[Rfam]
RNA: Molybdenum/Tungsten riboswitch aptamer (Moco RNA motif)
RNA sequence: ACUAUGACAGCUCUCCGAGCCUGCCCACCUAAGUCGACUCGAUACGGUUCGCAGGCCGUGGCAACUAGCCACCAGGGAUAGACAAGAAAUGGUCUUUCCUCCCGGAUAAAUUGGAAAGGUGAACAUGUCGCAACAAC
Numbered sequence: 001a002c003u004a005u006g007a008c009a010g011c012u013c014u015c016c017g018a019g020c021c022u023g024c025c026c027a028c029c030u031a032a033g034u035c036g037a038c039u040c041g042a043u044a045c046g047g048u049u050c051g052c053a054g055g056c057c058g059u060g061g062c063a064a065c066u067a068g069c070c071a072c073c074a075g076g077g078a079u080a081g082a083c084a085a086g087a088a089a090u091g092g093u094c095u096u097u098c099c100u101c102c103c104g105g106a107u108a109a110a111u112u113g114g115a116a117a118g119g120u121g122a123a124c125a126u127g128u129c130g131c132a133a134c135a136a137c
Stems, first nucleotide, its partner, number of pairs: 006128001012122002015119002019056006027048003033043004058072005075100004080095004085090001101114002